[Rfam]
RNA sequence: CGCAUCUUUUUGCCGGACCUGGAGCGGUUAUUGUCUGCUGCUAAGGUUUCCACUGCAGAGGCAAGAAAAAAGGUCUCUGUGCUUUCUGUCUGUGAUUGUGGCAGCCGAGGCUGAAUGGGGUAUACAGAG
Number, nucleotide and partner (000 for none) at each position: 001c000002g062003c061004a000005u059006c058007u057008u000009u000010u000011u052012g051013c000014c000015g049016g048017a047018c046019c045020u000021g000022g000023a039024g038025c037026g036027g035028u000029u000030a000031u000032u000033g000034u000035c027036u026037g025038c024039u023040g000041c000042u000043a000044a000045g019046g018047u017048u016049u015050c000051c012052a011053c000054u000055g000056c000057a007058g006059a005060g000061g003062c002063a000064a000065g000066a000067a000068a000069a000070a000071a000072g000073g000074u000075c120076u119077c118078u117079g116080u000081g000082c113083u000084u000085u110086c109087u108088g000089u000090c104091u103092g102093u101094g000095a000096u000097u000098g000099u000100g000101g093102c092103a091104g090105c000106c000107g000108a087109g086110g085111c000112u000113g082114a000115a000116u079117g078118g077119g076120g075121u000122a000123u000124a000125c000126a000127g000128a000129g000
Shown here is a 129-nucleotide RNA from Pteropus alecto, a member of the family "Small nucleolar RNA SNORA31". About the family: ACA31 (SNORA31) belongs to the H/ACA class of snoRNAs which are thought to guide the sites of modification of uridines to pseudouridines. ACA31 is predicted to guide the pseudouridylation of U3713 in 28S rRNA and U218 in 18S rRNA. This family includes the mouse homologue snoMBI-161. The base pairs follow the family's consensus structure, which was predicted with RNAalifold. Taxonomically the source falls in Pteropus (Eukaryota, Sarcopterygii, Boreoeutheria, Chiroptera). Rfam classes the family as an H/ACA-box small nucleolar RNA. A search with the family's covariance model found it, with a score of 42 bits. The family has 5 seed sequences and 2,094 matches in Rfam 15.1.